[Rfam]
RNA sequence: CCCCAGCCGGCGGGGCCUCAUGAGAGGAUAGGCCGGACAGUCCCAGCCGGGCGUGGAUUGUAGAGAAAAACCCCGGCUGCG
Numbered sequence: 001c002c003c004c005a006g007c008c009g010g011c012g013g014g015g016c017c018u019c020a021u022g023a024g025a026g027g028a029u030a031g032g033c034c035g036g037a038c039a040g041u042c043c044c045a046g047c048c049g050g051g052c053g054u055g056g057a058u059u060g061u062a063g064a065g066a067a068a069a070a071c072c073c074c075g076g077c078u079g080c081g
Stems, first nucleotide, its partner, number of pairs: 001015004007036005017026003038060005046077005
The record is an 81-nucleotide RNA from Phabquatrovirus PHB04, which matches "Proteo-phage-1 RNA" in Rfam. The base pairs follow the family's consensus structure, which is taken from published work. Lineage of the source: Viruses > Uroviricota > Caudoviricetes > Phabquatrovirus > Phabquatrovirus PHB04.